[Rfam]
RNA sequence: GCAAAAGCCAGCGGCAACGCGCUGGCGGAAGACAACUCUUUGGGCCGUAGAACGCCGUGCAGGGCGGCGUACGGCGACGCGACACUUCUGGCCGCGAGUCAGGCCGGGGGCGGUGACUCAAAACUACUUGGCCCUGCAGCCAAUGUGGGACGGAUUCUAGCAGGCUUUUAUAGAUCGUCAAUGCUACAAAAUCGCAAAUCAAUAACAAAAUGUAA
Numbered sequence: 001g002c003a004a005a006a007g008c009c010a011g012c013g014g015c016a017a018c019g020c021g022c023u024g025g026c027g028g029a030a031g032a033c034a035a036c037u038c039u040u041u042g043g044g045c046c047g048u049a050g051a052a053c054g055c056c057g058u059g060c061a062g063g064g065c066g067g068c069g070u071a072c073g074g075c076g077a078c079g080c081g082a083c084a085c086u087u088c089u090g091g092c093c094g095c096g097a098g099u100c101a102g103g104c105c106g107g108g109g110g111c112g113g114u115g116a117c118u119c120a121a122a123a124c125u126a127c128u129u130g131g132c133c134c135u136g137c138a139g140c141c142a143a144u145g146u147g148g149g150a151c152g153g154a155u156u157c158u159a160g161c162a163g164g165c166u167u168u169u170a171u172a173g174a175u176c177g178u179c180a181a182u183g184c185u186a187c188a189a190a191a192u193c194g195c196a197a198a199u200c201a202a203u204a205a206c207a208a209a210a211u212g213u214a215a
Stems, first nucleotide, its partner, number of pairs: 008025006044117001046115003053069005076100003080096001144183003150178004156174004

The record is a 215-nucleotide sequence from Trinickia soli, which matches "Burkholderia sRNA Bp1_Cand738_SIPHT" in Rfam. NCBI's taxonomy places the organism under Bacteria, Pseudomonadota, Betaproteobacteria, Burkholderiales, Trinickia. The literature on the family includes a 2012 paper in BMC Genomics by Khoo et al., "Computational discovery and RT-PCR validation of novel Burkholderia conserved and Burkholderia pseudomallei unique sRNAs". The match comes from Rfam's covariance-model search (120 bits). Rfam classes the family as a small RNA.